[Rfam]
RNA sequence: UGAUGAUGGUGAGGGCAAUUUCUGAGCAUACCCUUAAAUCUCUCCCAAGCUUGGUAAAGAUUCUCUCCGUCUUUCUGUCUAAAACUCAAGAUUUCACUCCUCAAGCA
Numbered sequence: 001u002g003a004u005g006a007u008g009g010u011g012a013g014g015g016c017a018a019u020u021u022c023u024g025a026g027c028a029u030a031c032c033c034u035u036a037a038a039u040c041u042c043u044c045c046c047a048a049g050c051u052u053g054g055u056a057a058a059g060a061u062u063c064u065c066u067c068c069g070u071c072u073u074u075c076u077g078u079c080u081a082a083a084a085c086u087c088a089a090g091a092u093u094u095c096a097c098u099c100c101u102c103a104a105g106c107a
Base pairs, nucleotide, nucleotide: 001107004104005102006101057074058073
Plant small nucleolar RNA R71: a 107-nucleotide RNA from Capsicum annuum. The family's RNA type in Rfam is C/D-box small nucleolar RNA. Pairs were carried over by alignment from the consensus structure, which was predicted with PFOLD. NCBI's taxonomy places the organism under Eukaryota, Viridiplantae, Mesangiospermae, eudicotyledons, Capsicum. Its family is annotated with nucleolus and RNA processing in the Gene Ontology.